Description:
Shown here is a 98-nucleotide RNA sequence from Cetobacterium sp. 2A, a member of the family "Purine riboswitch aptamer". The family has 133 seed sequences and 4,097 matches in Rfam 15.1.
RNA sequence: CAAUUUAAUAAAGGAAUUAGUCAUAUAAGUUGCUAAUACGGCGCAACGUCUCUACGACCAACCUUAAAUUGGUCUCUAUGAAAAAAUAUAAAGGGGAU
Numbered sequence: 001c002a003a004u005u006u007a008a009u010a011a012a013g014g015a016a017u018u019a020g021u022c023a024u025a026u027a028a029g030u031u032g033c034u035a036a037u038a039c040g041g042c043g044c045a046a047c048g049u050c051u052c053u054a055c056g057a058c059c060a061a062c063c064u065u066a067a068a069u070u071g072g073u074c075u076c077u078a079u080g081a082a083a084a085a086a087u088a089u090a091a092a093g094g095g096g097a098u
Stems, first nucleotide, its partner, number of pairs: 018084001021081005029047005056074006